[Rfam]
RNA: mir-8799 microRNA precursor family
Organism: Canis lupus
RNA sequence: GGGGGAGCGCCGGAUCCUGGGCUGUGUCCCCAGCGCCCUGGGCGCCCGAGCCUUCGCUGUUGGAUUCGUGCUCCUGGCUGUGCAGCCCCCU
Numbered sequence: 001g002g003g004g005g006a007g008c009g010c011c012g013g014a015u016c017c018u019g020g021g022c023u024g025u026g027u028c029c030c031c032a033g034c035g036c037c038c039u040g041g042g043c044g045c046c047c048g049a050g051c052c053u054u055c056g057c058u059g060u061u062g063g064a065u066u067c068g069u070g071c072u073c074c075u076g077g078c079u080g081u082g083c084a085g086c087c088c089c090c091u
Base pairs, nucleotide, nucleotide: 001090002089003088004087005086009083010082011080012079013078016077017076019074020073021072023070024069025068026067027064028063030062031059032058033057034056035055040052042051043050